About this RNA: The family of this 82-nucleotide RNA from Glaciimonas sp. PCH181 is "SAH (S-adenosyl-L-homocysteine) riboswitch aptamer". It scores 57 bits against the family's covariance model. A reference for the family is Wang et al. (2008), "Riboswitches that sense S-adenosylhomocysteine and activate genes involved in coenzyme recycling", Mol Cell. The base pairs follow the family's consensus structure, which is taken from published work. Rfam links the family to the GO terms regulation of gene expression and S-adenosylhomocysteine metabolic process. Lineage of the source: Bacteria > Pseudomonadota > Burkholderiales > Oxalobacteraceae > Glaciimonas.

RNA sequence: CGUGCCAAGGAGCGUUGCGACAGACAUCCACAUAGUCUGCCAGGCUUGGCAUCGCUGUAGUAUGCAACCGCGCUCACGUUUC
Numbered sequence: 001c002g003u004g005c006c007a008a009g010g011a012g013c014g015u016u017g018c019g020a021c022a023g024a025c026a027u028c029c030a031c032a033u034a035g036u037c038u039g040c041c042a043g044g045c046u047u048g049g050c051a052u053c054g055c056u057g058u059a060g061u062a063u064g065c066a067a068c069c070g071c072g073c074u075c076a077c078g079u080u081u082c
Stems, first nucleotide, its partner, number of pairs: 002052007021039005